[Rfam]
RNA: Molybdenum/Tungsten riboswitch aptamer (Moco RNA motif)
Organism: Alkalibacter rhizosphaerae
RNA sequence: CUGAAAGCAGCACUCCGAGUUGCAUCACCUAAGCUGGAAGUACGGUGGUUCGACCGAUAGGGUAUGACUGGAAACGGCCAUGCCUUCCGUUUGAAAAGGAGGAUAUGAAUGUAUCUG
Numbered sequence: 001c002u003g004a005a006a007g008c009a010g011c012a013c014u015c016c017g018a019g020u021u022g023c024a025u026c027a028c029c030u031a032a033g034c035u036g037g038a039a040g041u042a043c044g045g046u047g048g049u050u051c052g053a054c055c056g057a058u059a060g061g062g063u064a065u066g067a068c069u070g071g072a073a074a075c076g077g078c079c080a081u082g083c084c085u086u087c088c089g090u091u092u093g094a095a096a097a098g099g100a101g102g103a104u105a106u107g108a109a110u111g112u113a114u115c116u117g
Base pairs, nucleotide, nucleotide: 004110013101014100015099016098019054020053021052022051024049025048026047027046028045029044033041034040035039060085061084062083063082064081065080066079068077069076070075086094087093